[Rfam]
RNA sequence: GUAUUCUUGCGCGCAUGAACCGCACCCUGUCCGCCCUCCGACGUCGCCGCUCGCCCCUUCCUUAGGGCCAGGCUUGGUCACGGACGUGCGUUCUGCCUUCGGCGCACAUGCAGUUCGAAUCACUAAAGCCACGGUCCUCCGUGGCUUUUUU
Numbered sequence: 001g002u003a004u005u006c007u008u009g010c011g012c013g014c015a016u017g018a019a020c021c022g023c024a025c026c027c028u029g030u031c032c033g034c035c036c037u038c039c040g041a042c043g044u045c046g047c048c049g050c051u052c053g054c055c056c057c058u059u060c061c062u063u064a065g066g067g068c069c070a071g072g073c074u075u076g077g078u079c080a081c082g083g084a085c086g087u088g089c090g091u092u093c094u095g096c097c098u099u100c101g102g103c104g105c106a107c108a109u110g111c112a113g114u115u116c117g118a119a120u121c122a123c124u125a126a127a128g129c130c131a132c133g134g135u136c137c138u139c140c141g142u143g144g145c146u147u148u149u150u151u
Stems, first nucleotide, its partner, number of pairs: 007118002011091004019087002031083003039076003043073003049068002054065001125148010
About this RNA:
The record is a 151-nucleotide sequence from Paraburkholderia caballeronis, which matches "Burkholderia sRNA 7" in Rfam. The base pairs follow the family's consensus structure, which was predicted with R-scape. The family's RNA type in Rfam is small RNA. The organism belongs to Paraburkholderia, within Bacteria. Rfam describes the family as follows. Did not show any change in expression in iron-depletion and hydrogen peroxide (oxidative stress) treatment. Constitutively expressed. Possibly targets the GTPase, ObgE.